Shown here is a 68-nucleotide sequence from Trithuria inconspicua, a member of the family "Plastid-clpP 5UTR RNA". The sequence is in the family's curated seed alignment. The organism belongs to Trithuria, within Eukaryota. About the family: Plastid clpP is a non-coding RNA (ncRNA) recognised in plastids.
[Rfam]
RNA sequence: UUCUCUUCCUACGAAGAGAUGGAAGCAGAUCUAUUCUAUACCCGAUAAGAACCAAUACGCAAUGGGGA
Numbered sequence: 001u002u003c004u005c006u007u008c009c010u011a012c013g014a015a016g017a018g019a020u021g022g023a024a025g026c027a028g029a030u031c032u033a034u035u036c037u038a039u040a041c042c043c044g045a046u047a048a049g050a051a052c053c054a055a056u057a058c059g060c061a062a063u064g065g066g067g068a
Stems, first nucleotide, its partner, number of pairs: 002019001004017005041066003049058001051056001